[Rfam]
Description
Shown here is a 120-nucleotide RNA sequence from Glycine max, a member of the family "MIR1520 microRNA precursor family".

RNA sequence: UUCUUAUUAGAUGAUGAUUGACACGUGUCAUGUUCUGAUUGACCAAUGACAACAAUAAUACAUUUCAUCUUCCAUGGAUUCAACAUUCAAUAAGAACAUGACACGUGGCAGUCAACAUUC
Numbered sequence: 001u002u003c004u005u006a007u008u009a010g011a012u013g014a015u016g017a018u019u020g021a022c023a024c025g026u027g028u029c030a031u032g033u034u035c036u037g038a039u040u041g042a043c044c045a046a047u048g049a050c051a052a053c054a055a056u057a058a059u060a061c062a063u064u065u066c067a068u069c070u071u072c073c074a075u076g077g078a079u080u081c082a083a084c085a086u087u088c089a090a091u092a093a094g095a096a097c098a099u100g101a102c103a104c105g106u107g108g109c110a111g112u113c114a115a116c117a118u119u120c
Base pairs, nucleotide, nucleotide: 020109022107023106025104026103029100030099031098033096034095035094036093038091039090040089041088042087
Clan: MIR1520 microRNA precursor clan.